[Rfam]
RNA: Small nucleolar RNA SNORD83
RNA sequence: GCCAAAUGAUGCUUAUUUGACUCUGGUGCACUUCAGUGUAAGGAUGAUUUAUAAUCUGUCACUCAUGAUUGAUGGCC
Numbered sequence: 001g002c003c004a005a006a007u008g009a010u011g012c013u014u015a016u017u018u019g020a021c022u023c024u025g026g027u028g029c030a031c032u033u034c035a036g037u038g039u040a041a042g043g044a045u046g047a048u049u050u051a052u053a054a055u056c057u058g059u060c061a062c063u064c065a066u067g068a069u070u071g072a073u074g075g076c077c
Stems, first nucleotide, its partner, number of pairs: 001076004028039004